[Rfam]
RNA sequence: UGCCUUUAUGUGUUGCCCUUUCAUUGUUCCCUUAGUGAUUGGGGUGUCAAAUAAGGCAUACAAUGACACUUGUGACUGUCUGGUGAAAUGAGUUUCAAGUGACUGUUUUACACACACAGCUGCAAGGACACAU
Numbered sequence: 001u002g003c004c005u006u007u008a009u010g011u012g013u014u015g016c017c018c019u020u021u022c023a024u025u026g027u028u029c030c031c032u033u034a035g036u037g038a039u040u041g042g043g044g045u046g047u048c049a050a051a052u053a054a055g056g057c058a059u060a061c062a063a064u065g066a067c068a069c070u071u072g073u074g075a076c077u078g079u080c081u082g083g084u085g086a087a088a089u090g091a092g093u094u095u096c097a098a099g100u101g102a103c104u105g106u107u108u109u110a111c112a113c114a115c116a117c118a119g120c121u122g123c124a125a126g127g128a129c130a131c132a133u
Stems, first nucleotide, its partner, number of pairs: 002057005011049002014046004018041001021038005069126004076119004084112002087108002092103002
Description:
A member of the RNA family "Small nucleolar RNA SNORA13" from Etheostoma spectabile, 133 nucleotides long. From the family's description: ACA13 is a member of the H/ACA class of snoRNA that guide the sites of modification of uridines to pseudouridines. Lineage of the source: Eukaryota > Teleostomi > Neopterygii > Neoteleostei > Oligocephalus. It scores 67 bits against the family's covariance model. The family's RNA type in Rfam is H/ACA-box small nucleolar RNA. Rfam links the family to the GO terms RNA processing and nucleolus.